Notes: This 74-nucleotide RNA sequence belongs to the Rfam family "L13-Bacteroidia ribosomal protein leader". The sequence is in the family's curated seed alignment. Pairs were carried over by alignment from the consensus structure, which is taken from published work.
RNA sequence: AGGGGAAACCUUAGAACCCCUUUGCGAGAGUGUUAAUAGUCAAUAGCUUGGCCGGCUUUGACGGUUAGUGAAUC
Numbered sequence: 001a002g003g004g005g006a007a008a009c010c011u012u013a014g015a016a017c018c019c020c021u022u023u024g025c026g027a028g029a030g031u032g033u034u035a036a037u038a039g040u041c042a043a044u045a046g047c048u049u050g051g052c053c054g055g056c057u058u059u060g061a062c063g064g065u066u067a068g069u070g071a072a073u074c
Base pairs, nucleotide, nucleotide: 001021002020003019004018005017033068034067035066036065037064039062040061041060043059045057046056047055048054